Shown here is a 96-nucleotide RNA from Jejuibacter calystegiae, a member of the family "Aggregatibacter sRNA 22".

[Rfam]
RNA sequence: AAGCGGAGGACAAAAUUGCCGGGAGCAAUUUUGAACAACGCCGCAGGCGUUGGCCCCGGAGGGGCGAGGCCCAGGGACGGGCCGAGUAAUCCCGAA
Numbered sequence: 001a002a003g004c005g006g007a008g009g010a011c012a013a014a015a016u017u018g019c020c021g022g023g024a025g026c027a028a029u030u031u032u033g034a035a036c037a038a039c040g041c042c043g044c045a046g047g048c049g050u051u052g053g054c055c056c057c058g059g060a061g062g063g064g065c066g067a068g069g070c071c072c073a074g075g076g077a078c079g080g081g082c083c084g085a086g087u088a089a090u091c092c093c094g095a096a
Stems, first nucleotide, its partner, number of pairs: 011033008036052007053065005068083005084093001086091001

Rfam classes the family as a small RNA.